[Rfam]
RNA sequence: GGCACCUAAAAGCGUUUUCUUGUACGCCAUUUCAAUGCGCUUGAAAAUCGUAGCUGUGUGCCAGAGCAAAGCUAAGUUGCAAGUGACUUUUGAAUUAUUACCACUCGAAAGUCCAUAACGCUGAGUACAUUU
Numbered sequence: 001g002g003c004a005c006c007u008a009a010a011a012g013c014g015u016u017u018u019c020u021u022g023u024a025c026g027c028c029a030u031u032u033c034a035a036u037g038c039g040c041u042u043g044a045a046a047a048u049c050g051u052a053g054c055u056g057u058g059u060g061c062c063a064g065a066g067c068a069a070a071g072c073u074a075a076g077u078u079g080c081a082a083g084u085g086a087c088u089u090u091u092g093a094a095u096u097a098u099u100a101c102c103a104c105u106c107g108a109a110a111g112u113c114c115a116u117a118a119c120g121c122u123g124a125g126u127a128c129a130u131u132u
Base pairs, nucleotide, nucleotide: 001062002061003060004059005058006056012051013050014049015047016046017045018044019043022038023037072125073124075122076121077120083116084115085114086112087111088110089109091107092106093105
Shown here is a 132-nucleotide sequence from Drosophila albomicans, a member of the family "Small nucleolar RNA psi28S-3316". The family has 33 seed sequences and 85 matches in Rfam 15.1. By type it is an H/ACA-box small nucleolar RNA. Pairs were carried over by alignment from the consensus structure, which was predicted with RNAfold. It scores 109 bits against the family's covariance model. Rfam links the family to the GO terms nucleolus and RNA processing.